[Rfam]
RNA: ffh sRNA
RNA sequence: GACGCGGGCGGCGAACGUCCGGCAGCGCGUUGCGCCCCCGGGCGCGUUUUGUG
Number, nucleotide and partner (000 for none) at each position: 001g000002a000003c000004g000005c000006g000007g000008g000009c000010g000011g000012c000013g000014a000015a000016c044017g043018u042019c041020c040021g039022g038023c000024a000025g035026c034027g033028c032029g000030u000031u000032g028033c027034g026035c025036c000037c000038c022039c021040g020041g019042g018043c017044g016045c000046g000047u000048u000049u000050u000051g000052u000053g000